This 78-nucleotide RNA sequence from Megasphaera paucivorans belongs to the Rfam family "ZMP/ZTP riboswitch aptamer (pfl RNA motif)". Pairs were carried over by alignment from the consensus structure, which is taken from published work. Its family is annotated with one-carbon metabolic process and regulation of purine nucleotide biosynthetic process in the Gene Ontology. The organism belongs to Megasphaera, within Bacteria. A search with the family's covariance model found it, with a score of 59 bits.

RNA sequence: AUGAGUUCAUGUGACUGACGGAAGUGGAAUGACCACGGGGAGCAUGACUAAGAAAAGCCGACCGUCUGGGCAAUGAUU
Number, nucleotide and partner (000 for none) at each position: 001a000002u000003g000004a049005g048006u000007u047008c046009a045010u044011g043012u042013g000014a000015c039016u038017g066018a065019c064020g063021g062022a000023a000024g036025u035026g034027g033028a000029a000030u000031g000032a000033c027034c026035a025036c024037g000038g016039g015040g000041a000042g012043c011044a010045u009046g008047a007048c005049u004050a000051a000052g000053a000054a000055a000056a000057g071058c070059c069060g000061a000062c021063c020064g019065u018066c017067u000068g000069g059070g058071c057072a000073a000074u000075g000076a000077u000078u000